[Rfam]
RNA sequence: CAGAGUAAAAGGCAAACCGCGUGAAAGCGUGGGACGCAAAGCCAGGGGACUAAAGCCGAAAGGCCAGGUCAGCCGGUUGCCUCG
Numbered sequence: 001c002a003g004a005g006u007a008a009a010a011g012g013c014a015a016a017c018c019g020c021g022u023g024a025a026a027g028c029g030u031g032g033g034a035c036g037c038a039a040a041g042c043c044a045g046g047g048g049a050c051u052a053a054a055g056c057c058g059a060a061a062g063g064c065c066a067g068g069u070c071a072g073c074c075g076g077u078u079g080c081c082u083c084g
Stems, first nucleotide, its partner, number of pairs: 012037002017032006040078004046074002048070003055064003
RNA: c-di-GMP-I riboswitch aptamer
Organism: Aminicella lysinilytica